[Rfam]
Rfam assigns this 86-nucleotide RNA from Solanum lycopersicum to the family "MIR8024 microRNA precursor family".
The match comes from Rfam's covariance-model search (87 bits).
Its family is annotated with RISC complex and miRNA-mediated post-transcriptional gene silencing in the Gene Ontology.
RNA sequence: UUGAAGAAUUUGAAGACUUCAACUUGUAUACUUAGAGGAUUUGAAAACUAGAACUUGCAUAUUUGGAGGAUUUGAAGACUUAAACU
Numbered sequence: 001u002u003g004a005a006g007a008a009u010u011u012g013a014a015g016a017c018u019u020c021a022a023c024u025u026g027u028a029u030a031c032u033u034a035g036a037g038g039a040u041u042u043g044a045a046a047a048c049u050a051g052a053a054c055u056u057g058c059a060u061a062u063u064u065g066g067a068g069g070a071u072u073u074g075a076a077g078a079c080u081u082a083a084a085c086u
Stems, first nucleotide, its partner, number of pairs: 001084002004081003009076006017068005025059004032053002036049002